[Rfam]
RNA sequence: GAAGUUUUUCGGGGCAGGGUGAAAAUCCCGACCGACGGUGAGCAGGUUUCCUGUAAGUCCGUGACCCGCAUUUUGCGGUUGAACCAGUGCGAUUCUGGUACCGACAGUAUAGUCUGGAUGGGAGAAAAACGAG
Numbered sequence: 001g002a003a004g005u006u007u008u009u010c011g012g013g014g015c016a017g018g019g020u021g022a023a024a025a026u027c028c029c030g031a032c033c034g035a036c037g038g039u040g041a042g043c044a045g046g047u048u049u050c051c052u053g054u055a056a057g058u059c060c061g062u063g064a065c066c067c068g069c070a071u072u073u074u075g076c077g078g079u080u081g082a083a084c085c086a087g088u089g090c091g092a093u094u095c096u097g098g099u100a101c102c103g104a105c106a107g108u109a110u111a112g113u114c115u116g117g118a119u120g121g122g123a124g125a126a127a128a129a130c131g132a133g
Stems, first nucleotide, its partner, number of pairs: 004130007017029003031113002033103002035062004057101002066078002083099005105116003